[Rfam]
RNA sequence: GCGGGAAUAGCUCAGUUGGUAGAGCGUAACCUUGCCAAGGUUAAGGUCGCGAGUUCGAGCCUCGUUUCCCGCU
Dot-bracket structure: (((((((..((((........)))).(((((.......))))).....(((((.......)))))))))))).
Numbered sequence: 001g002c003g004g005g006a007a008u009a010g011c012u013c014a015g016u017u018g019g020u021a022g023a024g025c026g027u028a029a030c031c032u033u034g035c036c037a038a039g040g041u042u043a044a045g046g047u048c049g050c051g052a053g054u055u056c057g058a059g060c061c062u063c064g065u066u067u068c069c070c071g072c073u
Stems, first nucleotide, its partner, number of pairs: 001072007010025004027043005049065005

The family of this 73-nucleotide sequence from Steroidobacter agaridevorans is "tRNA". The base pairs follow the family's consensus structure, which is taken from published work. The match comes from Rfam's covariance-model search (70 bits). Rfam links the family to the GO term triplet codon-amino acid adaptor activity. Its Rfam clan is "tRNA clan". By type it is a transfer RNA.